[Rfam]
RNA: raiA RNA
RNA sequence: CGGCGGCGGGUCUGUGGUUGAAAGUCGACGCCAGCCGCGGGCGAAACGACCCACGUAAACCGAAAAUUUCGGCGAGCAUGGCGCGGUUUAGCAGUCAGCCCGGCCGGGAAACCGAGAGGCACAGUAGUGGGGAGGCUUUAGCCUUAUGAGCGAGAUGCCCAGCCGGCGGAUGUGGGGGCAAAGACCAGGUCAGCCGCCGCCG
Numbered sequence: 001c002g003g004c005g006g007c008g009g010g011u012c013u014g015u016g017g018u019u020g021a022a023a024g025u026c027g028a029c030g031c032c033a034g035c036c037g038c039g040g041g042c043g044a045a046a047c048g049a050c051c052c053a054c055g056u057a058a059a060c061c062g063a064a065a066a067u068u069u070c071g072g073c074g075a076g077c078a079u080g081g082c083g084c085g086g087u088u089u090a091g092c093a094g095u096c097a098g099c100c101c102g103g104c105c106g107g108g109a110a111a112c113c114g115a116g117a118g119g120c121a122c123a124g125u126a127g128u129g130g131g132g133a134g135g136c137u138u139u140a141g142c143c144u145u146a147u148g149a150g151c152g153a154g155a156u157g158c159c160c161a162g163c164c165g166g167c168g169g170a171u172g173u174g175g176g177g178g179c180a181a182a183g184a185c186c187a188g189g190u191c192a193g194c195c196g197c198c199g200c201c202g
Stems, first nucleotide, its partner, number of pairs: 001202009012193003015187005028173003031041001033088007050081002060071001062069001079180001100166005105114003118159004127151002133144003